[Rfam]
RNA sequence: ACGGAGCAACCCGAAAAUCCAUAACAGAGUUGGGA
Numbered sequence: 001a002c003g004g005a006g007c008a009a010c011c012c013g014a015a016a017a018u019c020c021a022u023a024a025c026a027g028a029g030u031u032g033g034g035a
Stems, first nucleotide, its partner, number of pairs: 003020003010034003

A member of the RNA family "DUF805b RNA" from Paludibacter propionicigenes, 35 nucleotides long. A search with the family's covariance model found it, with a score of 38 bits. Rfam classes the family as a cis-regulatory element. NCBI's taxonomy places the organism under Bacteria, Bacteroidota, Bacteroidales, Paludibacter, Paludibacter propionicigenes.